[Rfam]
RNA sequence: GAAAAAGCAGGGAUCUGUUAUUUUUUGUGAACUGGUCUCUCGUAAACUUCAGGGAUAGAAAAUUGCAAGGUUAUUGGGUGAACCUCUUGAGUUCCAUUGAUUGAUGGUUUAGUAAACAAUGUUACACUU
Numbered sequence: 001g002a003a004a005a006a007g008c009a010g011g012g013a014u015c016u017g018u019u020a021u022u023u024u025u026u027g028u029g030a031a032c033u034g035g036u037c038u039c040u041c042g043u044a045a046a047c048u049u050c051a052g053g054g055a056u057a058g059a060a061a062a063u064u065g066c067a068a069g070g071u072u073a074u075u076g077g078g079u080g081a082a083c084c085u086c087u088u089g090a091g092u093u094c095c096a097u098u099g100a101u102u103g104a105u106g107g108u109u110u111a112g113u114a115a116a117c118a119a120u121g122u123u124a125c126a127c128u129u
Stems, first nucleotide, its partner, number of pairs: 005049003011038002014035002017032001066121002070117003079111006
Dot-bracket structure: ....(((...((.((.(..............).)).))........)))................((..(((......((((((.....................))))))...)))..))........
RNA: Small nucleolar RNA snoR74
Organism: Olea europaea